[Rfam]
RNA: Small nucleolar RNA SNORA17
Organism: Hylia prasina
RNA sequence: CCUGCCCCAGCUCGUGUUGCAGCCGUGGCUGCGGUGCCACGUCUGUGUCAUGGGGGGCACACAGCAACAGGCCACGUCUUCCCUGGUGCUCUGAGCCCUGUGAGCUCCCAGGACUGCUCAACAGCCUGACACG
Numbered sequence: 001c002c003u004g005c006c007c008c009a010g011c012u013c014g015u016g017u018u019g020c021a022g023c024c025g026u027g028g029c030u031g032c033g034g035u036g037c038c039a040c041g042u043c044u045g046u047g048u049c050a051u052g053g054g055g056g057g058c059a060c061a062c063a064g065c066a067a068c069a070g071g072c073c074a075c076g077u078c079u080u081c082c083c084u085g086g087u088g089c090u091c092u093g094a095g096c097c098c099u100g101u102g103a104g105c106u107c108c109c110a111g112g113a114c115u116g117c118u119c120a121a122c123a124g125c126c127u128g129a130c131a132c133g
Base pairs, nucleotide, nucleotide: 003059004058005057006056007054008053010051014048015047019046020045021044022043024041025040026039027038028037029036068128069127070126071125072124081116083111084110085109086108088105089104090103091102